[Rfam]
RNA sequence: CCCUGACAGUCGCGUUGUGUGGCUGACUUAACCCACGACAGGAGAUAAUCAUG
Numbered sequence: 001c002c003c004u005g006a007c008a009g010u011c012g013c014g015u016u017g018u019g020u021g022g023c024u025g026a027c028u029u030a031a032c033c034c035a036c037g038a039c040a041g042g043a044g045a046u047a048a049u050c051a052u053g
Base pairs, nucleotide, nucleotide: 002042003041004040005039007025008024009023010022011021

Description:
Mu-gpT-DE RNA: a 53-nucleotide sequence. Rfam's curators put it in the seed alignment. The family's RNA type in Rfam is small RNA.